The record is a 177-nucleotide RNA sequence from Polypterus senegalus, which matches "Small Cajal body specific RNA 16" in Rfam. The source organism's lineage runs through Eukaryota, Chordata, Teleostomi, Actinopterygii and Polypterus. The family's RNA type in Rfam is small Cajal body RNA. The base pairs follow the family's consensus structure, which was predicted with RNAfold.
[Rfam]
RNA sequence: UUGGUCUGAGCACAAGCUGCUGUAUCGUCUUCUCCUAUAUGGAGUAGGCUCUGUAUGCUGCAGCAUGUUCCUGACCUAGAUUACUAUAAGGUGGACCUAAAGAUGGCUGCCUUUGCAGCAGCAGGUGUGGGCAUUCAGUCAGCUUCCAUGUGCCCAUGUAUAAUGCUGCACACAUUU
Numbered sequence: 001u002u003g004g005u006c007u008g009a010g011c012a013c014a015a016g017c018u019g020c021u022g023u024a025u026c027g028u029c030u031u032c033u034c035c036u037a038u039a040u041g042g043a044g045u046a047g048g049c050u051c052u053g054u055a056u057g058c059u060g061c062a063g064c065a066u067g068u069u070c071c072u073g074a075c076c077u078a079g080a081u082u083a084c085u086a087u088a089a090g091g092u093g094g095a096c097c098u099a100a101a102g103a104u105g106g107c108u109g110c111c112u113u114u115g116c117a118g119c120a121g122c123a124g125g126u127g128u129g130g131g132c133a134u135u136c137a138g139u140c141a142g143c144u145u146c147c148a149u150g151u152g153c154c155c156a157u158g159u160a161u162a163a164u165g166c167u168g169c170a171c172a173c174a175u176u177u
Base pairs, nucleotide, nucleotide: 003076004075005074006073008071010069016064017063018062019061020060022058024056025055027049028048029047030046032044033043034042086104087103089098090097112172114170115169116168117167118166119165120164123161128156129155130154132152133151134150138147
Dot-bracket structure: ..((((.(.(.....(((((.(.((.((((.(((.......))).)))).....)).).)))))....).).)))).........((.((......))....)).......(.(((((((..(....(((.(((...(........)..))).)))....)..))))))).).....